The record is a 116-nucleotide RNA sequence from Flavisolibacter ginsengisoli, which matches "SAM riboswitch aptamer (S box leader)" in Rfam. It scores 76 bits against the family's covariance model.
[Rfam]
RNA sequence: UACUUAUCAAGAAAGGUGUAGGGAAUUGGCCCGAUGAUACCUUAGCAACCGCUCCUGAUUCUUAGGAAUUAGUGAAAACGGUGCUACUUCCAUCCCGCAAGCGGGAGAGAUAAGUC
Numbered sequence: 001u002a003c004u005u006a007u008c009a010a011g012a013a014a015g016g017u018g019u020a021g022g023g024a025a026u027u028g029g030c031c032c033g034a035u036g037a038u039a040c041c042u043u044a045g046c047a048a049c050c051g052c053u054c055c056u057g058a059u060u061c062u063u064a065g066g067a068a069u070u071a072g073u074g075a076a077a078a079c080g081g082u083g084c085u086a087c088u089u090c091c092a093u094c095c096c097g098c099a100a101g102c103g104g105g106a107g108a109g110a111u112a113a114g115u116c
Base pairs, nucleotide, nucleotide: 002115003114004113005112006111007110008109013043014042015041016040017039021032022031023030027092028091029090044085045084046083047082049081050080053075054074089108094105095104096103097102

Pairs were carried over by alignment from the consensus structure, which is taken from published work. Rfam 15.1 lists 9,625 matches to the family in 4,158 species. NCBI's taxonomy places the organism under Bacteria, Chitinophagales, Chitinophagaceae, Flavisolibacter, Flavisolibacter ginsengisoli.